[Rfam]
RNA sequence: UCCUGGUGUCCUUCAUUCCACCGGAAUCUGUCGGACCCCAAAGUGGAUUUCAGUGAAAUGAAGCCCCUCAGAGA
Numbered sequence: 001u002c003c004u005g006g007u008g009u010c011c012u013u014c015a016u017u018c019c020a021c022c023g024g025a026a027u028c029u030g031u032c033g034g035a036c037c038c039c040a041a042a043g044u045g046g047a048u049u050u051c052a053g054u055g056a057a058a059u060g061a062a063g064c065c066c067c068u069c070a071g072a073g074a
Stems, first nucleotide, its partner, number of pairs: 011063006019055003023051004028046003
The record is a 74-nucleotide RNA from Campylorhamphus procurvoides, which matches "mir-205 microRNA precursor family" in Rfam. Pairs were carried over by alignment from the consensus structure, which was predicted with RNAalifold. A search with the family's covariance model found it, with a score of 65 bits. Lineage of the source: Eukaryota > Eumetazoa > Craniata > Sauria > Campylorhamphus. A reference for the family is Murchison et al. (2008), "Conservation of small RNA pathways in platypus", Genome Res. The family has 44 seed sequences and 1,154 matches in Rfam 15.1.